[Rfam]
RNA sequence: AAGCAGUGUGACAUGCCCGUUUUGGUGAUAUACUCUGAUGUAUUAUUUAUUAUUUAAUUGUUUGGGAUAACGAGGUGUUCCAAUUGGU
Numbered sequence: 001a002a003g004c005a006g007u008g009u010g011a012c013a014u015g016c017c018c019g020u021u022u023u024g025g026u027g028a029u030a031u032a033c034u035c036u037g038a039u040g041u042a043u044u045a046u047u048u049a050u051u052a053u054u055u056a057a058u059u060g061u062u063u064g065g066g067a068u069a070a071c072g073a074g075g076u077g078u079u080c081c082a083a084u085u086g087g088u
Base pairs, nucleotide, nucleotide: 002088004086005085006084007083008081010079011078012077013076014075016074018072019071020070021069
The family of this 88-nucleotide RNA sequence from Medicago truncatula is "MIR2617 microRNA precursor family". It scores 53 bits against the family's covariance model.